[Rfam]
Rfam assigns this 84-nucleotide RNA from Saimiri boliviensis to the family "mir-548 microRNA precursor family". Lineage of the source: Eukaryota > Craniata > Dipnotetrapodomorpha > Tetrapoda > Saimiri boliviensis. Rfam links the family to the GO terms RISC complex and miRNA-mediated post-transcriptional gene silencing. The match comes from Rfam's covariance-model search (92 bits).
RNA sequence: UAUUAGGUUGGUGCAGAUGUGAUUGUGAUUUUUGCCAUUACUAUCAAUGGCAAAAAACACAAUCACAUCUGCACCAACCUAAUA
Numbered sequence: 001u002a003u004u005a006g007g008u009u010g011g012u013g014c015a016g017a018u019g020u021g022a023u024u025g026u027g028a029u030u031u032u033u034g035c036c037a038u039u040a041c042u043a044u045c046a047a048u049g050g051c052a053a054a055a056a057a058c059a060c061a062a063u064c065a066c067a068u069c070u071g072c073a074c075c076a077a078c079c080u081a082a083u084a
Stems, first nucleotide, its partner, number of pairs: 001084027029056011